MIR1120/MIR1122 microRNA precursor family: an 87-nucleotide sequence from Aegilops tauschii. Gene Ontology terms of the family: RISC complex and miRNA-mediated post-transcriptional gene silencing. The family has 6 seed sequences and 44,765 matches in Rfam 15.1.
RNA sequence: AUACUCCCUCCGUCUCAUAAUACAAGAGCGUUUUUUACACUAGUAUAGUGCCAAAAACGUUCUUAUAUUAUGGGACGGAGGGAGUAG
Numbered sequence: 001a002u003a004c005u006c007c008c009u010c011c012g013u014c015u016c017a018u019a020a021u022a023c024a025a026g027a028g029c030g031u032u033u034u035u036u037a038c039a040c041u042a043g044u045a046u047a048g049u050g051c052c053a054a055a056a057a058c059g060u061u062c063u064u065a066u067a068u069u070a071u072g073g074g075a076c077g078g079a080g081g082g083a084g085u086a087g
Stems, first nucleotide, its partner, number of pairs: 003085003007081005013075005019069004024064012038050004